[Rfam]
A member of the RNA family "SAM (S-adenosyl methionine) riboswitch aptamer" from Antrihabitans stalagmiti, 110 nucleotides long. The family has 40 seed sequences and 2,360 matches in Rfam 15.1. The source organism's lineage runs through Bacteria, Bacillati, Actinomycetota, Mycobacteriales and Antrihabitans. A search with the family's covariance model found it, with a score of 96 bits.
RNA sequence: GGUCACGAGCAUCAGCGACAAGCCCCGGCUCGCUGGUCGGCAACCCUCCUUCGCGGCGGGGUGCCCCGGGUGAUGACAAGGCCCUCGACAGUCGAGAGCAAGCGCGCCGU
Numbered sequence: 001g002g003u004c005a006c007g008a009g010c011a012u013c014a015g016c017g018a019c020a021a022g023c024c025c026c027g028g029c030u031c032g033c034u035g036g037u038c039g040g041c042a043a044c045c046c047u048c049c050u051u052c053g054c055g056g057c058g059g060g061g062u063g064c065c066c067c068g069g070g071u072g073a074u075g076a077c078a079a080g081g082c083c084c085u086c087g088a089c090a091g092u093c094g095a096g097a098g099c100a101a102g103c104g105c106g107c108c109g110u
Stems, first nucleotide, its partner, number of pairs: 002077003009038001011037006021030002039065003044061003048056002081099002084096005
Dot-bracket structure: .(((....(.((((((....((......)).)))))))(((..(((.((.....))..))).))).........)))...((.(((((...))))).))...........